[Rfam]
RNA sequence: AUGAGUUUUUAUUUAUUUUUUGAUUGAAGAGAAAUGCUUGAUUGUCAGAUUUAACGAAGAAAAUCGGAACCCAAUACGUUAGGGCUCAAUUCCCUUGAAAAUCCU
Number, nucleotide and partner (000 for none) at each position: 001a000002u000003g000004a000005g000006u000007u000008u000009u000010u000011a000012u000013u000014u000015a000016u030017u029018u028019u027020u026021u000022g000023a000024u000025u000026g020027a019028a018029g017030a016031g000032a000033a000034a064035u063036g000037c000038u059039u058040g000041a000042u000043u056044g055045u054046c000047a052048g000049a000050u000051u000052u047053a000054a045055c044056g043057a000058a039059g038060a000061a000062a000063a035064u034065c000066g000067g000068a000069a000070c000071c000072c000073a000074a000075u000076a000077c000078g000079u000080u000081a095082g094083g093084g092085c000086u000087c000088a000089a000090u000091u000092c084093c083094c082095u081096u000097g000098a000099a000100a000101a000102u000103c000104c000105u000
Heliobacter pylori small RNA HPnc0580: a 105-nucleotide sequence from Gossypium hirsutum.